This 596-nucleotide sequence belongs to the Rfam family "ROOL RNA". The family's consensus secondary structure is taken from published work. About the family: Firmicutes, Fusobacteria (1 example), Tenericutes (1 example). The sequence is in the family's curated seed alignment.
[Rfam]
RNA sequence: GUAUAAUGGUGCAAUAAUCGGCAACUCAGUGCAGAGGGUUUAGUCAACCUUGCUGAGAACGGUUUGAAUGCAAAGUCUUGUUUAUAUGGGAUACUGUAUAAUUAAGGCUUCUUGUUGAUAGUGAUUGAUACGGGGUAGAGACAGAUGUCUCAAGUGCAAGAACCGGUUGCCGGUCUAUAUGAGCAAAAUGUCUAAUCAAGGAGUCGGAGCGAUAAUUGAGGAGGUCCACAGCAAUGGGGACCAAUGCGGCUCUUAAGUGCUGUAUGGGGACAUAUAGAUUACUGAGAGUAAUUCCAAAACAAGCUCUUGCCAAUGACCCGGAGAAAUCCGGCUAUAAGACAAAACAGAUUAGGGCGAGUACCACAAGGCGUUCUUUUACAAAAUAUUAAUUGCUAAAUAUUUACUGAAAAAUACUUAACAAGAACUGAAUGACGUGGGAAAGUUGGGGGUAUCAUUCCCCUCAGAGCAUAGGGCGAAAGCCGGGGUACAUAGGUUAGGACGACGGUCCGAAGCUUCAGGUGUAUCUCCUCUGUGACAGAAUAUUGCGUAGUAUAGAUUUGGGUAGGGCGAAGGUCCGCCGAUUAUUGUUUUUUUUU
Numbered sequence: 001g002u003a004u005a006a007u008g009g010u011g012c013a014a015u016a017a018u019c020g021g022c023a024a025c026u027c028a029g030u031g032c033a034g035a036g037g038g039u040u041u042a043g044u045c046a047a048c049c050u051u052g053c054u055g056a057g058a059a060c061g062g063u064u065u066g067a068a069u070g071c072a073a074a075g076u077c078u079u080g081u082u083u084a085u086a087u088g089g090g091a092u093a094c095u096g097u098a099u100a101a102u103u104a105a106g107g108c109u110u111c112u113u114g115u116u117g118a119u120a121g122u123g124a125u126u127g128a129u130a131c132g133g134g135g136u137a138g139a140g141a142c143a144g145a146u147g148u149c150u151c152a153a154g155u156g157c158a159a160g161a162a163c164c165g166g167u168u169g170c171c172g173g174u175c176u177a178u179a180u181g182a183g184c185a186a187a188a189u190g191u192c193u194a195a196u197c198a199a200g201g202a203g204u205c206g207g208a209g210c211g212a213u214a215a216u217u218g219a220g221g222a223g224g225u226c227c228a229c230a231g232c233a234a235u236g237g238g239g240a241c242c243a244a245u246g247c248g249g250c251u252c253u254u255a256a257g258u259g260c261u262g263u264a265u266g267g268g269g270a271c272a273u274a275u276a277g278a279u280u281a282c283u284g285a286g287a288g289u290a291a292u293u294c295c296a297a298a299a300c301a302a303g304c305u306c307u308u309g310c311c312a313a314u315g316a317c318c319c320g321g322a323g324a325a326a327u328c329c330g331g332c333u334a335u336a337a338g339a340c341a342a343a344a345c346a347g348a349u350u351a352g353g354g355c356g357a358g359u360a361c362c363a364c365a366a367g368g369c370g371u372u373c374u375u376u377u378a379c380a381a382a383a384u385a386u387u388a389a390u391u392g393c394u395a396a397a398u399a400u401u402u403a404c405u406g407a408a409a410a411a412u413a414c415u416u417a418a419c420a421a422g423a424a425c426u427g428a429a430u431g432a433c434g435u436g437g438g439a440a441a442g443u444u445g446g447g448g449g450u451a452u453c454a455u456u457c458c459c460c461u462c463a464g465a466g467c468a469u470a471g472g473g474c475g476a477a478a479g480c481c482g483g484g485g486u487a488c489a490u491a492g493g494u495u496a497g498g499a500c501g502a503c504g505g506u507c508c509g510a511a512g513c514u515u516c517a518g519g520u521g522u523a524u525c526u527c528c529u530c531u532g533u534g535a536c537a538g539a540a541u542a543u544u545g546c547g548u549a550g551u552a553u554a555g556a557u558u559u560g561g562g563u564a565g566g567g568c569g570a571a572g573g574u575c576c577g578c579c580g581a582u583u584a585u586u587g588u589u590u591u592u593u594u595u596u
Stems, first nucleotide, its partner, number of pairs: 008592002011589001014586001017583001021579001025057005036050005060165006074109006082101008110135006120125001138151005173558001176555001186544001193351004203340003206307005223242004249289006257279002261272003265296004308370004318331005355442001361437004425518003446461004463531003466481001472480001482528004491520001492515002495511001497508004565576004